[Rfam]
RNA sequence: CCCCUUGCAAGACAUCCACGCCCGCCCUAUAUUUGAACUGUCCUUCGGGACUAUGGACAUAAACGCGCUCGUAAUAAGCGGAUCGGACCCGGGGGCGGUACCCGGCGUCUCCACCAAACAUCCUUCAUUUGGGGAUCAUGGGGACGAAAUAGGAUCGACGAACGUCUAAAGGGGUUUUGCUUUGUCUCGGCUGUCUGCCACCGUUAUCGGCGAAAACUGUACAAUUGCAAAUGACAAUCGUGCUCCGAUGGCAGUUGCAGCGUAAGCUGUAACCUACAUCGAAAAUUAAGUCCUUGCGCCUAGCAGCGUAAGGCGGGGUUCGCAGGCACCUGGCAACAGAAGCCUGCACU
Numbered sequence: 001c002c003c004c005u006u007g008c009a010a011g012a013c014a015u016c017c018a019c020g021c022c023c024g025c026c027c028u029a030u031a032u033u034u035g036a037a038c039u040g041u042c043c044u045u046c047g048g049g050a051c052u053a054u055g056g057a058c059a060u061a062a063a064c065g066c067g068c069u070c071g072u073a074a075u076a077a078g079c080g081g082a083u084c085g086g087a088c089c090c091g092g093g094g095g096c097g098g099u100a101c102c103c104g105g106c107g108u109c110u111c112c113a114c115c116a117a118a119c120a121u122c123c124u125u126c127a128u129u130u131g132g133g134g135a136u137c138a139u140g141g142g143g144a145c146g147a148a149a150u151a152g153g154a155u156c157g158a159c160g161a162a163c164g165u166c167u168a169a170a171g172g173g174g175u176u177u178u179g180c181u182u183u184g185u186c187u188c189g190g191c192u193g194u195c196u197g198c199c200a201c202c203g204u205u206a207u208c209g210g211c212g213a214a215a216a217c218u219g220u221a222c223a224a225u226u227g228c229a230a231a232u233g234a235c236a237a238u239c240g241u242g243c244u245c246c247g248a249u250g251g252c253a254g255u256u257g258c259a260g261c262g263u264a265a266g267c268u269g270u271a272a273c274c275u276a277c278a279u280c281g282a283a284a285a286u287u288a289a290g291u292c293c294u295u296g297c298g299c300c301u302a303g304c305a306g307c308g309u310a311a312g313g314c315g316g317g318g319u320u321c322g323c324a325g326g327c328a329c330c331u332g333g334c335a336a337c338a339g340a341a342g343c344c345u346g347c348a349c350u
Stems, first nucleotide, its partner, number of pairs: 040051004055187005065180002067175004079164002083161003089105005106146007188203003194213002197211003316331004322347006
Shown here is a 350-nucleotide RNA from Pseudosulfitobacter pseudonitzschiae, a member of the family "Alphaproteobacteria transfer-messenger RNA". Lineage of the source: Bacteria > Pseudomonadota > Rhodobacterales > Roseobacteraceae > Pseudosulfitobacter. The match comes from Rfam's covariance-model search (303 bits). Pairs were carried over by alignment from the consensus structure, which is taken from published work.